[Rfam]
RNA sequence: CUUUGAGGUCCGAGUCGGACCUGCCCUGAUUCUUGCUGCAGUGAUAUUUCGAACGGCUAGAUUAUCACCGGGUGACAAUUAGGACAGGUCCGACCCCUAGUG
Numbered sequence: 001c002u003u004u005g006a007g008g009u010c011c012g013a014g015u016c017g018g019a020c021c022u023g024c025c026c027u028g029a030u031u032c033u034u035g036c037u038g039c040a041g042u043g044a045u046a047u048u049u050c051g052a053a054c055g056g057c058u059a060g061a062u063u064a065u066c067a068c069c070g071g072g073u074g075a076c077a078a079u080u081a082g083g084a085c086a087g088g089u090c091c092g093a094c095c096c097c098u099a100g101u102g
Base pairs, nucleotide, nucleotide: 016092017091018090019089020088021087022086025083026082027081028080029079030078031077033075034074035073036072037071039070041068042067043066044065045064046063

A member of the RNA family "mir-36 microRNA precursor family" from Caenorhabditis briggsae, 102 nucleotides long. Its family is annotated with RISC complex and miRNA-mediated post-transcriptional gene silencing in the Gene Ontology. It scores 68 bits against the family's covariance model.